[Rfam]
RNA sequence: AGCAAUCUUCAGGGCAGGGUGAAAUUCCCGAUCGGCGGUAAAGUCCGCGACUCCCAUUUUGGGACUGAUCUAGUGAAAUUCUAGAACCGACUGUAAAGUCAGGAUGGAAGAAGAUGGGC
Numbered sequence: 001a002g003c004a005a006u007c008u009u010c011a012g013g014g015c016a017g018g019g020u021g022a023a024a025u026u027c028c029c030g031a032u033c034g035g036c037g038g039u040a041a042a043g044u045c046c047g048c049g050a051c052u053c054c055c056a057u058u059u060u061g062g063g064a065c066u067g068a069u070c071u072a073g074u075g076a077a078a079u080u081c082u083a084g085a086a087c088c089g090a091c092u093g094u095a096a097a098g099u100c101a102g103g104a105u106g107g108a109a110g111a112a113g114a115u116g117g118g119c
Stems, first nucleotide, its partner, number of pairs: 003117001005115006017029003031099002033089002035048004043087002052064002069085005091102003
The family of this 119-nucleotide sequence from Aerococcus sp. HMSC10H05 is "FMN riboswitch aptamer (RFN element)". Rfam links the family to the GO term FMN binding. It scores 116 bits against the family's covariance model. Taxonomically the source falls in Aerococcus (Bacteria, Bacillati, Bacillota, Aerococcaceae).